[Rfam]
RNA: tRNA
RNA sequence: CCCGGGCUAGCUCAAUUGGCAGAGCGCACGUUUACCAAAUUGACGUGAGGUCACAAGUUCGAUUCUUGUGCCUGGGC
Numbered sequence: 001c002c003c004g005g006g007c008u009a010g011c012u013c014a015a016u017u018g019g020c021a022g023a024g025c026g027c028a029c030g031u032u033u034a035c036c037a038a039a040u041u042g043a044c045g046u047g048a049g050g051u052c053a054c055a056a057g058u059u060c061g062a063u064u065c066u067u068g069u070g071c072c073u074g075g076g077c
Stems, first nucleotide, its partner, number of pairs: 001076007010025004027047005053069005